[Rfam]
RNA: Bacillaceae-1 RNA
RNA sequence: CAAAUUAGAAGCCCAGCUAACGUCUGACACGUCCUGUGUCAAAACGCCGGAUCAGCCCGUCGUGGGCA
Numbered sequence: 001c002a003a004a005u006u007a008g009a010a011g012c013c014c015a016g017c018u019a020a021c022g023u024c025u026g027a028c029a030c031g032u033c034c035u036g037u038g039u040c041a042a043a044a045c046g047c048c049g050g051a052u053c054a055g056c057c058c059g060u061c062g063u064g065g066g067c068a
Stems, first nucleotide, its partner, number of pairs: 011052001013050002016047002026040005055067004